[Rfam]
RNA sequence: UGAAAUUGCAGUUAAGAUGUAUGAAAAGCUGUAUACUCGUGUACCCGAAUUAACGUUUAAGCGAUAUGUAAUAUCGUCGGCCACGAGGCCGUCCCUUACAUGGGGCGGUUUUUUAUUUG
Numbered sequence: 001u002g003a004a005a006u007u008g009c010a011g012u013u014a015a016g017a018u019g020u021a022u023g024a025a026a027a028g029c030u031g032u033a034u035a036c037u038c039g040u041g042u043a044c045c046c047g048a049a050u051u052a053a054c055g056u057u058u059a060a061g062c063g064a065u066a067u068g069u070a071a072u073a074u075c076g077u078c079g080g081c082c083a084c085g086a087g088g089c090c091g092u093c094c095c096u097u098a099c100a101u102g103g104g105g106c107g108g109u110u111u112u113u114u115a116u117u118u119g
Stems, first nucleotide, its partner, number of pairs: 007033005012027002036087006045080003048057003061077006088109008

DUF3800-I RNA: a 119-nucleotide sequence from Lactobacillus gigeriorum. The sequence is in the family's curated seed alignment. Actinobacteria, Firmicutes, Fusobacteria, Proteobacteria (1 example), Tenericutes (2 examples). Taxonomically the source falls in Lactobacillus gigeriorum (Bacteria, Bacilli, Lactobacillales, Lactobacillus).